[Rfam]
RNA sequence: ACUAUUCAUACAUAAAAGCUCCAUAUAUUUCUGGUAAUACGGUCCGGAAGUUUCUACUUGCAUCCCGUAAAGAUGCAAACUAUGGCACAAGAUAGCAUAUGU
Numbered sequence: 001a002c003u004a005u006u007c008a009u010a011c012a013u014a015a016a017a018g019c020u021c022c023a024u025a026u027a028u029u030u031c032u033g034g035u036a037a038u039a040c041g042g043u044c045c046g047g048a049a050g051u052u053u054c055u056a057c058u059u060g061c062a063u064c065c066c067g068u069a070a071a072g073a074u075g076c077a078a079a080c081u082a083u084g085g086c087a088c089a090a091g092a093u094a095g096c097a098u099a100u101g102u
Stems, first nucleotide, its partner, number of pairs: 018088001021085005029049006058078007

Shown here is a 102-nucleotide RNA from Erysipelothrix sp. HDW6C, a member of the family "Purine riboswitch aptamer". The source organism's lineage runs through Bacteria, Bacillati, Erysipelotrichia, Erysipelotrichales and Erysipelothrix.